[Rfam]
RNA sequence: GUUUGAAUGAUGAUUUAAACUGUCGGAUACCCCUUCACCUUUUUUCAUGGGUGAAAAAUCAACAGUCUGACAAAC
Numbered sequence: 001g002u003u004u005g006a007a008u009g010a011u012g013a014u015u016u017a018a019a020c021u022g023u024c025g026g027a028u029a030c031c032c033c034u035u036c037a038c039c040u041u042u043u044u045u046c047a048u049g050g051g052u053g054a055a056a057a058a059u060c061a062a063c064a065g066u067c068u069g070a071c072a073a074a075c
Stems, first nucleotide, its partner, number of pairs: 001075005
This 75-nucleotide RNA from Dipodomys ordii belongs to the Rfam family "Small nucleolar RNA SNORD101".
Lineage of the source: Eukaryota > Chordata > Euarchontoglires > Glires > Dipodomys.
The family's RNA type in Rfam is C/D-box small nucleolar RNA.
The family's consensus secondary structure was predicted with PFOLD.
Rfam links the family to the GO terms nucleolus and RNA processing.